The record is a 79-nucleotide RNA from Gadus morhua, which matches "mir-140 microRNA precursor family" in Rfam. It scores 98 bits against the family's covariance model. NCBI's taxonomy places the organism under Eukaryota, Euteleostomi, Teleostei, Eurypterygia, Gadus.

[Rfam]
RNA sequence: GGCGUCGCGUCAGUGGUUUUACCCUAUGGUAGGUGACGUCAUGCUGUUCUACCACAGGGUAGAACCACGGACAGGAUGU
Numbered sequence: 001g002g003c004g005u006c007g008c009g010u011c012a013g014u015g016g017u018u019u020u021a022c023c024c025u026a027u028g029g030u031a032g033g034u035g036a037c038g039u040c041a042u043g044c045u046g047u048u049c050u051a052c053c054a055c056a057g058g059g060u061a062g063a064a065c066c067a068c069g070g071a072c073a074g075g076a077u078g079u
Stems, first nucleotide, its partner, number of pairs: 010070002013068013027054007036047003